[Rfam]
RNA sequence: AUGGGUUGGUGGCGCAAUGUUUCCCAGUACGGGCGACGUUGUCGUGCACACCUAGCGUAAACACUGUGCAGAUACCUGAGCCCGCCACCGAGCGGGCUUUUUUUU
Numbered sequence: 001a002u003g004g005g006u007u008g009g010u011g012g013c014g015c016a017a018u019g020u021u022u023c024c025c026a027g028u029a030c031g032g033g034c035g036a037c038g039u040u041g042u043c044g045u046g047c048a049c050a051c052c053u054a055g056c057g058u059a060a061a062c063a064c065u066g067u068g069c070a071g072a073u074a075c076c077u078g079a080g081c082c083c084g085c086c087a088c089c090g091a092g093c094g095g096g097c098u099u100u101u102u103u104u105u
Stems, first nucleotide, its partner, number of pairs: 009045004014039002019037003023033003079098007086090001

Tryptophan operon leader: a 105-nucleotide RNA sequence from Pantoea ananatis. For this family Rfam cites "Attenuation in amino acid biosynthetic operons" (Kolter and Yanofsky, Annu Rev Genet, 1982). The match comes from Rfam's covariance-model search (49 bits). About the family: At least 6 amino acid operons are known to be regulated by attenuation. In each a leader sequence of 150-200 bp is found upstream of the first gene in the operon. This leader sequence can assume two different secondary structures known as the terminator and the anti-terminator structure. In each case the leader also codes for very short peptide sequence that is rich in the end product amino acid of the operon. Gene Ontology terms of the family: transcriptional attenuation by ribosome and tryptophan biosynthetic process.